[Rfam]
RNA sequence: GGAUGUGAAGACAAUCUAGCUGUGGCAUCUCUCCCUCCAUUGACUGCAAGAGAUGAUUCUGCUGUUUUGACUGGUUAGGCCAGCUGUCCCCUUCCUCCCUCAAUAGCUCCAUGUGUGUCCCUCCCAAAGCUGCACACUUGGUUGCAGAGGACAACCUCCCCAAUAGAUUUUUUUGGCUGGAAAGUGGCCCAGUGGAGAAAUACCUUGCCACGUGGGGAAGAAGGCCAAAGGCAUCCUGGCCUGUAUCAGGCAUAGCAUGACCAGCAAGACCAGGGCAGUGACUGUCCCCCUGUACUU
Numbered sequence: 001g002g003a004u005g006u007g008a009a010g011a012c013a014a015u016c017u018a019g020c021u022g023u024g025g026c027a028u029c030u031c032u033c034c035c036u037c038c039a040u041u042g043a044c045u046g047c048a049a050g051a052g053a054u055g056a057u058u059c060u061g062c063u064g065u066u067u068u069g070a071c072u073g074g075u076u077a078g079g080c081c082a083g084c085u086g087u088c089c090c091c092u093u094c095c096u097c098c099c100u101c102a103a104u105a106g107c108u109c110c111a112u113g114u115g116u117g118u119c120c121c122u123c124c125c126a127a128a129g130c131u132g133c134a135c136a137c138u139u140g141g142u143u144g145c146a147g148a149g150g151a152c153a154a155c156c157u158c159c160c161c162a163a164u165a166g167a168u169u170u171u172u173u174u175g176g177c178u179g180g181a182a183a184g185u186g187g188c189c190c191a192g193u194g195g196a197g198a199a200a201u202a203c204c205u206u207g208c209c210a211c212g213u214g215g216g217g218a219a220g221a222a223g224g225c226c227a228a229a230g231g232c233a234u235c236c237u238g239g240c241c242u243g244u245a246u247c248a249g250g251c252a253u254a255g256c257a258u259g260a261c262c263a264g265c266a267a268g269a270c271c272a273g274g275g276c277a278g279u280g281a282c283u284g285u286c287c288c289c290c291u292g293u294a295c296u297u
Stems, first nucleotide, its partner, number of pairs: 001110003005104001006102003010098001014093001019090001024088004029083002032079002035074002038069002042067002045064001046062003118176002122167002124141004129137001142163003149159003207251003213245002224240004266297003270292001273289002275285004
The record is a 297-nucleotide sequence from Picathartes gymnocephalus, which matches "7SK RNA" in Rfam. The family has 45 seed sequences and 49,373 matches in Rfam 15.1. The base pairs follow the family's consensus structure, which is taken from published work. The literature on the family includes a 2002 paper in Curr Biol by Blencowe, "Transcription: surprising role for an elusive small nuclear RNA". By type it is a non-coding RNA gene. Its Rfam clan is "7SK clan". A search with the family's covariance model found it, with a score of 93 bits.